[Rfam]
RNA sequence: AGACACUUCGCGGAAGAGUCCGUCGGCGCGAGCCGCCGGCGCCGAAGGCGCAACCGCCCCGGAAACGCUCAGGCCACCAGGACCGCUGAAGUGAU
Dot-bracket structure: .....((((((((......(((..............))).(((((..(((...((.....))...))))).)))........)))).))))....
Numbered sequence: 001a002g003a004c005a006c007u008u009c010g011c012g013g014a015a016g017a018g019u020c021c022g023u024c025g026g027c028g029c030g031a032g033c034c035g036c037c038g039g040c041g042c043c044g045a046a047g048g049c050g051c052a053a054c055c056g057c058c059c060c061g062g063a064a065a066c067g068c069u070c071a072g073g074c075c076a077c078c079a080g081g082a083c084c085g086c087u088g089a090a091g092u093g094a095u
Stems, first nucleotide, its partner, number of pairs: 006091004010086004020039003041074003044070002048068003054062002
Notes
Rfam assigns this 95-nucleotide RNA from Roseiarcus fermentans to the family "Glycine riboswitch aptamer". The match comes from Rfam's covariance-model search (52 bits). Clan: Glycine riboswitch clan. The base pairs follow the family's consensus structure.